[Rfam]
RNA sequence: GAGCCAUGAUGGUUAUGUCUCGUUCGGUGUACUGGCGAGUUACCAACAAAGCCAUGCCGACAAAGCUUAUAUAUCACCACUCACAAUCUGAGCUC
Numbered sequence: 001g002a003g004c005c006a007u008g009a010u011g012g013u014u015a016u017g018u019c020u021c022g023u024u025c026g027g028u029g030u031a032c033u034g035g036c037g038a039g040u041u042a043c044c045a046a047c048a049a050a051g052c053c054a055u056g057c058c059g060a061c062a063a064a065g066c067u068u069a070u071a072u073a074u075c076a077c078c079a080c081u082c083a084c085a086a087u088c089u090g091a092g093c094u095c
Stems, first nucleotide, its partner, number of pairs: 001095004037055001
The family of this 95-nucleotide sequence from Pleodorina starrii is "Small nucleolar RNA Z43".
Lineage of the source: Eukaryota > Viridiplantae > Chlorophyta > Volvocaceae > Pleodorina.
Rfam classes the family as a C/D-box small nucleolar RNA.
A search with the family's covariance model found it, with a score of 52 bits.
On this family, see Chen et al., Nucleic Acids Res 2003: "The high diversity of snoRNAs in plants: identification and comparative study of 120 snoRNA genes from Oryza sativa".
Pairs were carried over by alignment from the consensus structure, which was predicted with PFOLD.
Rfam 15.1 lists 859 matches to the family in 240 species.